The family of this 153-nucleotide RNA is "Ruegeria cis2 sRNA". A reference for the family is Rivers et al. (2016), "Experimental Identification of Small Non-Coding RNAs in the Model Marine Bacterium Ruegeria pomeroyi DSS-3", Front Microbiol.
Nucleotides: 153
Base pairs, nucleotide, nucleotide: 002035003034004033006032008030013025014024015023038056039055040054041052042051043050064153065152066151067150068149070082071081072080073079086147087146088145089144090143091142092141093140094139099133101130102129103127104126105125107123108122110119111118
Number, partner (000 for none) and nucleotide at each position: 001000g002035u003034u004033g005000c006032u007000g008030u009000a010000a011000u012000g013025u014024g015023g016000g017000u018000u019000g020000u021000a022000g023015u024014u025013g026000a027000c028000g029000a030008a031000a032006a033004c034003g035002a036000a037000c038056c039055c040054g041052c042051g043050g044000g045000c046000c047000u048000g049000a050043u051042c052041g053000a054040u055039g056038g057000c058000a059000u060000g061000a062000a063000a064153c065152a066151g067150c068149g069000g070082g071081u072080u073079c074000c075000a076000g077000u078000c079073g080072a081071a082070c083000a084000u085000g086147g087146c088145c089144a090143g091142c092141a093140u094139g095000a096000a097000g098000g099133a100000a101130g102129g103127c104126a105125g106000c107123g108122u109000g110119u111118u112000g113000g114000c115000c116000a117000g118111a119110a120000a121000c122108a123107u124000c125105u126104u127103g128000c129102c130101c131000g132000a133099u134000g135000c136000a137000a138000u139094c140093a141092u142091g143090u144089u145088g146087g147086c148000g149068c150067g151066u152065u153064g
Rfam links the family to the GO term regulation of gene expression. The base pairs follow the family's consensus structure, which was predicted with RNAfold.